Notes
Rfam assigns this 87-nucleotide RNA sequence from Gossypium mustelinum to the family "MIR7486 microRNA precursor family". The family's consensus secondary structure was predicted with RNAalifold. NCBI's taxonomy places the organism under Eukaryota, Embryophyta, rosids, Malvales, Gossypium.
[Rfam]
Nucleotides: 087
Base pairs, nucleotide, nucleotide: 001086002085004083005082006081007080009078010077011076013074014073015072016071017070018069019068020067021066023064024063025062026061027060028059029058030057031056032055033054034053035052037050038049040047041046
Number, partner (000 for none) and nucleotide at each position: 001086c002085a003000c004083g005082u006081c007080a008000c009078c010077g011076c012000u013074a014073g015072u016071u017070g018069c019068u020067g021066a022000c023064g024063u025062g026061g027060c028059a029058g030057c031056a032055a033054g034053u035052c036000g037050c038049g039000u040047c041046c042000u043000u044000g045000a046041g047040g048000g049038c050037g051000a052035g053034a054033u055032u056031u057030g058029u059028u060027g061026c062025c063024a064023u065000g066021u067020c068019a069018g070017c071016a072015a073014c074013u075000u076011g077010c078009g079000c080007u081006g082005a083004c084000a085002u086001g087000g